Notes:
Rfam assigns this 89-nucleotide sequence from Desulfobaculum bizertense to the family "Glycine riboswitch aptamer".

RNA sequence: CCUCUGGAGAGACUUCCACGAAGGAAGCGCCGAAGGAGCAAACCGGGAGAUCCCCUCCCCGGUCAAACUCUCAGGCAAAAGGACAGAGG
Numbered sequence: 001c002c003u004c005u006g007g008a009g010a011g012a013c014u015u016c017c018a019c020g021a022a023g024g025a026a027g028c029g030c031c032g033a034a035g036g037a038g039c040a041a042a043c044c045g046g047g048a049g050a051u052c053c054c055c056u057c058c059c060c061g062g063u064c065a066a067a068c069u070c071u072c073a074g075g076c077a078a079a080a081g082g083a084c085a086g087a088g089g
Stems, first nucleotide, its partner, number of pairs: 001089006013027004029076003032072002036070003042063006